Description
A member of the RNA family "Group II catalytic intron D1-D4-3" from Blastopirellula marina, 173 nucleotides long. Gene Ontology term of the family: Group II intron splicing. The source organism's lineage runs through Bacteria, Planctomycetia, Pirellulales, Blastopirellula and Blastopirellula marina.
RNA sequence: GUCGUCGUGAGGCGUGCGUCUGAAGGAAGCGUGGAGCGAAUUCGCGGCCUGACGUACAGGAAUCGGAUAGUAGGCGAUGUCGACGGGACGAGCCGCCAAUGCACGGCGAAGUCCUCUAUCCAUCGGAAAUCGACGUCGUAGAUCCGGCGGGCGUGCGAAGACAGUUGAUGAAC
Numbered sequence: 001g002u003c004g005u006c007g008u009g010a011g012g013c014g015u016g017c018g019u020c021u022g023a024a025g026g027a028a029g030c031g032u033g034g035a036g037c038g039a040a041u042u043c044g045c046g047g048c049c050u051g052a053c054g055u056a057c058a059g060g061a062a063u064c065g066g067a068u069a070g071u072a073g074g075c076g077a078u079g080u081c082g083a084c085g086g087g088a089c090g091a092g093c094c095g096c097c098a099a100u101g102c103a104c105g106g107c108g109a110a111g112u113c114c115u116c117u118a119u120c121c122a123u124c125g126g127a128a129a130u131c132g133a134c135g136u137c138g139u140a141g142a143u144c145c146g147g148c149g150g151g152c153g154u155g156c157g158a159a160g161a162c163a164g165u166u167g168a169u170g171a172a173c
Stems, first nucleotide, its partner, number of pairs: 001017002003014004029173001032170002036165002041159006047152005063147006074139003078135006086114004092107004